[Rfam]
RNA sequence: GGCCUCCCUCUGUUGGGUGAUUGAUCUGGGGGCCCCAUGAUUAAUUGCCCCACAGCGGGAGGCC
Dot-bracket structure: ((((((((.((((.((((((((((((..((....))..)))))))))))).)))).))))))))

mir-9242 microRNA precursor family: a 64-nucleotide sequence from Myotis lucifugus. Lineage of the source: Eukaryota > Craniata > Sarcopterygii > Dipnotetrapodomorpha > Myotis. A search with the family's covariance model found it, with a score of 62 bits. Pairs were carried over by alignment from the consensus structure, which was predicted with RNAalifold.